Rfam assigns this 71-nucleotide RNA from Drosophila erecta to the family "mir-6 microRNA precursor family". The base pairs follow the family's consensus structure, which was predicted with PFOLD. Rfam links the family to the GO terms miRNA-mediated post-transcriptional gene silencing and RISC complex. A reference for the family is Mourelatos et al. (2002), "miRNPs: a novel class of ribonucleoproteins containing numerous microRNAs", Genes Dev. Rfam's curators put it in the seed alignment. Rfam's curators write: This family consists of the microRNA (miRNA) precursor mir-6 which appears to be Drosophila specific. Animal miRNAs are transcribed as ~70nt precursors and subsequently processed by the Dicer enzyme to give a ~22nt product.
[Rfam]
RNA sequence: AGUAGAGGGAAUAGUUGCCGUGCUGUAAGUUAAUAUAUCAUAUCUAUAUCACAGUGGCUGUUCUUUUUGUA
Numbered sequence: 001a002g003u004a005g006a007g008g009g010a011a012u013a014g015u016u017g018c019c020g021u022g023c024u025g026u027a028a029g030u031u032a033a034u035a036u037a038u039c040a041u042a043u044c045u046a047u048a049u050c051a052c053a054g055u056g057g058c059u060g061u062u063c064u065u066u067u068u069g070u071a
Stems, first nucleotide, its partner, number of pairs: 003069002006066007015057004020052003024048004